This 97-nucleotide RNA from Stackebrandtia endophytica belongs to the Rfam family "Glycine riboswitch aptamer". Gene Ontology term of the family: glycine biosynthetic process.
[Rfam]
RNA sequence: CGUCUCUGGAAAGCAGACGACUCGUUCGUCUCACCGACGGGGCAAGCCUUCGCAUCGCGGAGGUGAAACUCUCAGGGCACCGGACAGAGGGGGAGGG
Number, nucleotide and partner (000 for none) at each position: 001c092002g000003u090004c089005u088006c087007u086008g085009g000010a000011a000012a000013g000014c000015a031016g030017a029018c028019g000020a000021c000022u000023c000024g000025u000026u000027c000028g018029u017030c016031u015032c000033a000034c076035c075036g073037a072038c000039g000040g071041g070042g069043c000044a000045a000046g064047c063048c062049u061050u060051c059052g058053c057054a000055u000056c000057g053058c052059g051060g050061a049062g048063g047064u046065g000066a000067a000068a000069c042070u041071c040072u037073c036074a000075g035076g034077g000078c000079a000080c000081c000082g000083g000084a000085c008086a007087g006088a005089g004090g003091g000092g001093g000094a000095g000096g000097g000